[Rfam]
The family of this 122-nucleotide sequence from Mesorhizobium sp. NBSH29 is "TPP riboswitch aptamer (THI element)".
RNA sequence: AACGCUCUAACGGGGUGCCGGUCGCUGCAAGGUGACAGGCUGAGAGGCAAAGGGGAAACCCGCGCCAACCCGCUGAACCUGAUCCGGUUUGUACCGGCGGAGGGAUUAGACGCUUUGCCCAG
Numbered sequence: 001a002a003c004g005c006u007c008u009a010a011c012g013g014g015g016u017g018c019c020g021g022u023c024g025c026u027g028c029a030a031g032g033u034g035a036c037a038g039g040c041u042g043a044g045a046g047g048c049a050a051a052g053g054g055g056a057a058a059c060c061c062g063c064g065c066c067a068a069c070c071c072g073c074u075g076a077a078c079c080u081g082a083u084c085c086g087g088u089u090u091g092u093a094c095c096g097g098c099g100g101a102g103g104g105a106u107u108a109g110a111c112g113c114u115u116u117g118c119c120c121a122g
Base pairs, nucleotide, nucleotide: 006110007109008108009107010106011072012071013070014069017040018039019038021036022035023034024033025032047065048064078103079102080101084097085096086095087094
It scores 61 bits against the family's covariance model.